A member of the RNA family "Small nucleolar RNA SNORA5" from Callaeas wilsoni, 134 nucleotides long. Gene Ontology terms of the family: RNA processing and nucleolus. About the family: ACA5 is a member of the H/ACA class of snoRNA that guide the sites of modification of uridines to pseudouridines. Lineage of the source: Eukaryota > Deuterostomia > Amniota > Sauria > Callaeas.
RNA sequence: UGCAGCCCAGUCAAAUUCGGUCCCUGUCCCCCAGUGUCGGGGACCGGCCACCGGCUGCCACAGCAACCUCUGUGCUCUGCAUGUCCCAUGUCCCCUCCCGUGGGACCUGGGCAGGUGGAUCCCCACGGACACGU
Number, nucleotide and partner (000 for none) at each position: 001u000002g058003c057004a056005g055006c000007c000008c000009a000010g000011u000012c000013a000014a000015a000016u000017u000018c046019g045020g044021u043022c042023c041024c040025u039026g038027u000028c036029c000030c000031c000032c000033a000034g000035u000036g028037u000038c026039g025040g024041g023042g022043a021044c020045c019046g018047g000048c000049c000050a000051c000052c000053g000054g000055c005056u004057g003058c002059c000060a000061c000062a000063g000064c000065a000066a000067c000068c000069u000070c000071u000072g126073u125074g124075c000076u119077c118078u117079g000080c000081a000082u000083g000084u000085c111086c110087c109088a108089u000090g000091u000092c000093c000094c000095c000096u000097c000098c000099c000100g000101u000102g000103g000104g000105a000106c000107c000108u088109g087110g086111g085112c000113a000114g000115g000116u000117g078118g077119a076120u000121c000122c000123c000124c074125a073126c072127g000128g000129a000130c000131a000132c000133g000134u000